[Rfam]
RNA sequence: AAAUUCUAGCGGGGGUGCAACAAUCUAGUUGCUGAGAGAGGAUAAUUCCUUAACCCUUUGAACCUGAUUCUGGCUAAUACCAGCGUAGGGAGGCUAAUUCACAAUAUUA
Numbered sequence: 001a002a003a004u005u006c007u008a009g010c011g012g013g014g015g016u017g018c019a020a021c022a023a024u025c026u027a028g029u030u031g032c033u034g035a036g037a038g039a040g041g042a043u044a045a046u047u048c049c050u051u052a053a054c055c056c057u058u059u060g061a062a063c064c065u066g067a068u069u070c071u072g073g074c075u076a077a078u079a080c081c082a083g084c085g086u087a088g089g090g091a092g093g094c095u096a097a098u099u100c101a102c103a104a105u106a107u108u109a
Stems, first nucleotide, its partner, number of pairs: 007096004011057004017032005039050004063089004070083004
Dot-bracket structure: ......((((((((..(((((......)))))......((((....))))...)))).....((((...((((......))))..))))...)))).............

Rfam assigns this 109-nucleotide RNA sequence from Aquella oligotrophica to the family "TPP riboswitch aptamer (THI element)".
The base pairs follow the family's consensus structure, which is taken from published work.
The source organism's lineage runs through Bacteria, Pseudomonadati, Pseudomonadota, Neisseriales and Aquella.